Rfam assigns this 356-nucleotide part of an RNA from Microlunatus parietis to the family "Bacterial small subunit ribosomal RNA".
RNA sequence: GGCGUAAAGGGCUUGUAGGCGGUCUGCCACGUCGGGAGUGAAAACUCAGGGCUUAACCCUGAGCGUGCUUCCGAUACGGGCUGACUAGAGGAAUGCAGGGGAGAAUGGAAUACCUGGUGGAGCGGUGGAAUGCGCAGAUAUCAGGUGGAACACCAGUGGCGAAGGCGGUUCUCUGGGCAUUUCCUGACGCUGAGAAGCGAAAGCGUGGGGAGCAAACAGGCUUAGAUACCCUGGUAGUCCACGCCGUAAACGGUGGGCACUAGGUGUGGGACUCAUUCCACGAGUUCCGUGCCGUAGCUAACGCAUUAAGUGCCCCGCCUGGGGAGUACGGCCGCAAGGCUAAAACUCAAAGGAAU
Numbered sequence: 001g002g003c004g005u006a007a008a009g010g011g012c013u014u015g016u017a018g019g020c021g022g023u024c025u026g027c028c029a030c031g032u033c034g035g036g037a038g039u040g041a042a043a044a045c046u047c048a049g050g051g052c053u054u055a056a057c058c059c060u061g062a063g064c065g066u067g068c069u070u071c072c073g074a075u076a077c078g079g080g081c082u083g084a085c086u087a088g089a090g091g092a093a094u095g096c097a098g099g100g101g102a103g104a105a106u107g108g109a110a111u112a113c114c115u116g117g118u119g120g121a122g123c124g125g126u127g128g129a130a131u132g133c134g135c136a137g138a139u140a141u142c143a144g145g146u147g148g149a150a151c152a153c154c155a156g157u158g159g160c161g162a163a164g165g166c167g168g169u170u171c172u173c174u175g176g177g178c179a180u181u182u183c184c185u186g187a188c189g190c191u192g193a194g195a196a197g198c199g200a201a202a203g204c205g206u207g208g209g210g211a212g213c214a215a216a217c218a219g220g221c222u223u224a225g226a227u228a229c230c231c232u233g234g235u236a237g238u239c240c241a242c243g244c245c246g247u248a249a250a251c252g253g254u255g256g257g258c259a260c261u262a263g264g265u266g267u268g269g270g271a272c273u274c275a276u277u278c279c280a281c282g283a284g285u286u287c288c289g290u291g292c293c294g295u296a297g298c299u300a301a302c303g304c305a306u307u308a309a310g311u312g313c314c315c316c317g318c319c320u321g322g323g324g325a326g327u328a329c330g331g332c333c334g335c336a337a338g339g340c341u342a343a344a345a346c347u348c349a350a351a352g353g354a355a356u
Stems, first nucleotide, its partner, number of pairs: 001319003009316001011198004016192001018191003022085003026081003030078002032074009045063007089185003092181005100174007107151001111147008122133003159166002203244006212238002217233004255315006263293012297304002321348003330341004

The base pairs follow the family's consensus structure, which is taken from published work. The source organism's lineage runs through Bacteria, Bacillati, Actinomycetes, Propionibacteriales and Microlunatus.